A member of the RNA family "A. fumigatus sRNA Afu_254" from Aspergillus welwitschiae, 157 nucleotides long. By type it is a small RNA. The organism belongs to Aspergillus subgen. Circumdati, within Eukaryota. Pairs were carried over by alignment from the consensus structure, which was predicted with WAR.
RNA sequence: AGCGAAAGCAAAACCAAUCUCAAACUACAUUAGUACAUCUUUCACCGGUUCCAUACCAACUUUUGCCAAAAUGUCUCCCUGCUCCUGCAACUGCUGCUCUGGCAACUGCUCCAGCUGCUCCUGCUCCUCUUGCAGCGUGAGUAACCCGUAGUUGGAG
Numbered sequence: 001a002g003c004g005a006a007a008g009c010a011a012a013a014c015c016a017a018u019c020u021c022a023a024a025c026u027a028c029a030u031u032a033g034u035a036c037a038u039c040u041u042u043c044a045c046c047g048g049u050u051c052c053a054u055a056c057c058a059a060c061u062u063u064u065g066c067c068a069a070a071a072u073g074u075c076u077c078c079c080u081g082c083u084c085c086u087g088c089a090a091c092u093g094c095u096g097c098u099c100u101g102g103c104a105a106c107u108g109c110u111c112c113a114g115c116u117g118c119u120c121c122u123g124c125u126c127c128u129c130u131u132g133c134a135g136c137g138u139g140a141g142u143a144a145c146c147c148g149u150a151g152u153u154g155g156a157g
Base pairs, nucleotide, nucleotide: 080104081103082102083101087097088096089095108133109132117124118123